[Rfam]
Epstein-Barr virus stable intronic sequence RNA 2: a 73-nucleotide RNA sequence from Anabarilius grahami. Rfam 15.1 lists 171 matches to the family in 47 species. On this family, see Moss et al., RNA Biol 2014: "RNA families in Epstein-Barr virus". The family's RNA type in Rfam is non-coding RNA gene. The source organism's lineage runs through Eukaryota, Deuterostomia, Vertebrata, Actinopteri and Anabarilius.

RNA sequence: GUCACGUUGUGUCUCCGCUGAUCGCCCGGAGUCGUGACGUGACUCCGGGCGAUCAGCGGAGACACAACGUGAC
Dot-bracket structure: (((((((((.((...(((((((((((((((((((.....)))))))))))))))))))...)).)))))))))